Shown here is an 84-nucleotide sequence from Triticum turgidum, a member of the family "mir-160 microRNA precursor family".

RNA sequence: GCGCACCACUCCCACGGUGUGCCAUUAGUAAAGAAAUUUAAUUUUUUUCAAAACUACUAAUGGCGCACCGUGGGGGUGGUGCGC
Number, nucleotide and partner (000 for none) at each position: 001g084002c083003g082004c081005a080006c079007c000008a077009c076010u075011c074012c073013c072014a071015c000016g069017g068018u067019g066020u065021g064022c063023c062024a061025u000026u000027a058028g057029u056030a000031a000032a000033g000034a000035a000036a000037u000038u000039u000040a000041a000042u000043u000044u000045u000046u000047u000048u000049c000050a000051a000052a000053a000054c000055u000056a029057c028058u027059a000060a000061u024062g023063g022064c021065g020066c019067a018068c017069c016070g000071u014072g013073g012074g011075g010076g009077u008078g000079g006080u005081g004082c003083g002084c001
It scores 48 bits against the family's covariance model. NCBI's taxonomy places the organism under Eukaryota, Euphyllophyta, Poaceae, Triticinae, Triticum turgidum. For this family Rfam cites "Prediction of plant microRNA targets" (Rhoades et al., Cell, 2002).